Shown here is a 145-nucleotide sequence from Thermostaphylospora chromogena, a member of the family "c-di-AMP riboswitch aptamer (ydaO/yuaA leader)". The match comes from Rfam's covariance-model search (84 bits).
RNA sequence: CCAGCCGAAGUGCCUAAUCCCGGGCGCCUCGCCCGGGAGCCGGGGGCCCGAUCUCAUGGGGUGAAUCCGCGGCUCCCCCGCCGCGGUAGGGAGACUCUCGGCCCGAACCCGUCAGCUAACCCGGCCGGCGAAAGUGAGAGGAGUA
Numbered sequence: 001c002c003a004g005c006c007g008a009a010g011u012g013c014c015u016a017a018u019c020c021c022g023g024g025c026g027c028c029u030c031g032c033c034c035g036g037g038a039g040c041c042g043g044g045g046g047c048c049c050g051a052u053c054u055c056a057u058g059g060g061g062u063g064a065a066u067c068c069g070c071g072g073c074u075c076c077c078c079c080g081c082c083g084c085g086g087u088a089g090g091g092a093g094a095c096u097c098u099c100g101g102c103c104c105g106a107a108c109c110c111g112u113c114a115g116c117u118a119a120c121c122c123g124g125c126c127g128g129c130g131a132a133a134g135u136g137a138g139a140g141g142a143g144u145a
Stems, first nucleotide, its partner, number of pairs: 011130004018038009039125006049058002059110003067086006089104003